[Rfam]
RNA sequence: UGAUGGAACUCUGGAGAGCCCCUGUAACAGAUACAGGGCGCCGAAGGGGCAAACCGGUUGUCAGCCGGUGAAACUCUCAGGCAAAAGGACAGAGCAGGCAUU
Dot-bracket structure: ........(((((......(((((((.....))))))).(((((..(((...(((((.......)))))....))))).))).......)))))........
Numbered sequence: 001u002g003a004u005g006g007a008a009c010u011c012u013g014g015a016g017a018g019c020c021c022c023u024g025u026a027a028c029a030g031a032u033a034c035a036g037g038g039c040g041c042c043g044a045a046g047g048g049g050c051a052a053a054c055c056g057g058u059u060g061u062c063a064g065c066c067g068g069u070g071a072a073a074c075u076c077u078c079a080g081g082c083a084a085a086a087g088g089a090c091a092g093a094g095c096a097g098g099c100a101u102u
Stems, first nucleotide, its partner, number of pairs: 009094005020038007040082003043078002047076003053069005

This 102-nucleotide sequence from Propionispora sp. 2/2-37 belongs to the Rfam family "Glycine riboswitch aptamer".